[Rfam]
c-di-GMP-I-GGC riboswitch aptamer: an 85-nucleotide RNA from Bacillus sp. FJAT-49736. Rfam links the family to the GO term cyclic-di-GMP binding.

RNA sequence: UCAGACAAAGGCAAACCUAUUGAAAAGUAGGGACGCAAAGUCACAGGUCUAAUGUUUUCUAACGAUGACGGCUGGACUACCUGAA
Numbered sequence: 001u002c003a004g005a006c007a008a009a010g011g012c013a014a015a016c017c018u019a020u021u022g023a024a025a026a027g028u029a030g031g032g033a034c035g036c037a038a039a040g041u042c043a044c045a046g047g048u049c050u051a052a053u054g055u056u057u058u059c060u061a062a063c064g065a066u067g068a069c070g071g072c073u074g075g076a077c078u079a080c081c082u083g084a085a
Stems, first nucleotide, its partner, number of pairs: 001085001003082002011036002016031006034071001039078004044074003047069003